[Rfam]
RNA sequence: GCAGGGGUGAACUUGGCUGGUGCUGAGUGCAGACUUCAAAUCUGUAGGCCAUUCGCUUGGCAGGAGUUCGAUUCUCCCUCGCCUGC
Dot-bracket structure: (((((.(.(..((((((....))))))((((((.......)))))).((((......)))).((((.......))))).).)))))
A member of the RNA family "Selenocysteine transfer RNA" from Phytophthora cactorum, 86 nucleotides long. Taxonomically the source falls in Phytophthora (Eukaryota, Sar, Oomycota, Peronosporomycetes).